[Rfam]
Rfam assigns this 120-nucleotide RNA from Hibiscus syriacus to the family "MIR398 microRNA precursor family". A search with the family's covariance model found it, with a score of 60 bits. Pairs were carried over by alignment from the consensus structure, which was predicted with WAR. The literature on the family includes a 2004 paper in Mol Cell by Jones-Rhoades and Bartel, "Computational identification of plant microRNAs and their targets, including a stress-induced miRNA".
RNA sequence: GACAGCCCCACAGGGGCGACCUGAGAACACAUGAAGAAAAGCACAAAGUGGAUAAGGUUUUUAAAACCUUUAACCUAAGAACGGCCACAUGUGAUCUCAUGUCGCUCCUGCUGGGCUCCU
Numbered sequence: 001g002a003c004a005g006c007c008c009c010a011c012a013g014g015g016g017c018g019a020c021c022u023g024a025g026a027a028c029a030c031a032u033g034a035a036g037a038a039a040a041g042c043a044c045a046a047a048g049u050g051g052a053u054a055a056g057g058u059u060u061u062u063a064a065a066a067c068c069u070u071u072a073a074c075c076u077a078a079g080a081a082c083g084g085c086c087a088c089a090u091g092u093g094a095u096c097u098c099a100u101g102u103c104g105c106u107c108c109u110g111c112u113g114g115g116c117u118c119c120u
Stems, first nucleotide, its partner, number of pairs: 007114002011110004016105004023098004028093005